Rfam assigns this 85-nucleotide RNA from Solanum lycopersicum to the family "Small nucleolar RNA SNORD25". The family is grouped with related families in Rfam's "SNORD25 clan". On this family, see Qu et al., Nucleic Acids Res 2001: "Identification of 10 novel snoRNA gene clusters from Arabidopsis thaliana". Rfam links the family to the GO terms RNA processing and nucleolus. NCBI's taxonomy places the organism under Eukaryota, Spermatophyta, eudicotyledons, Pentapetalae, Solanum subgen. Lycopersicon. Rfam 15.1 lists 985 matches to the family in 241 species. Rfam classes the family as a C/D-box small nucleolar RNA.
[Rfam]
RNA sequence: AUUAACGAUGAUGAGCUCUACAGACCUGUAAUGAUUUGCGAAAAUGAUCGCAAUUCUUAAUGAACAUCUAAGGGACUGAGUUGUU
Number, nucleotide and partner (000 for none) at each position: 001a000002u000003u083004a082005a081006c080007g000008a000009u000010g000011a000012u000013g000014a000015g000016c000017u000018c000019u000020a000021c000022a000023g000024a000025c000026c000027u000028g000029u000030a000031a000032u000033g000034a000035u000036u000037u000038g000039c000040g000041a000042a000043a000044a000045u000046g000047a000048u000049c000050g000051c000052a000053a000054u000055u000056c000057u000058u000059a000060a000061u000062g000063a000064a000065c000066a000067u000068c000069u000070a000071a000072g000073g000074g000075a000076c000077u000078g000079a000080g006081u005082u004083g003084u000085u000